Shown here is a 71-nucleotide sequence from Carlito syrichta, a member of the family "Small nucleolar RNA SNORD56". A reference for the family is Galardi et al. (2002), "Purified box C/D snoRNPs are able to reproduce site-specific 2'-O-methylation of target RNA in vitro", Mol Cell Biol. Its family is annotated with nucleolus and RNA processing in the Gene Ontology. It scores 69 bits against the family's covariance model. Rfam classes the family as a C/D-box small nucleolar RNA.
RNA sequence: CCACAAUGCUGGCAAUGUUUUUUACCAAUAGCAGUUCACCUAAUAAUUAUUGAUACUGUGGGGCUGAGUGA
Numbered sequence: 001c002c003a004c005a006a007u008g009c010u011g012g013c014a015a016u017g018u019u020u021u022u023u024a025c026c027a028a029u030a031g032c033a034g035u036u037c038a039c040c041u042a043a044u045a046a047u048u049a050u051u052g053a054u055a056c057u058g059u060g061g062g063g064c065u066g067a068g069u070g071a
Base pairs, nucleotide, nucleotide: 002070003069004068008026010024011023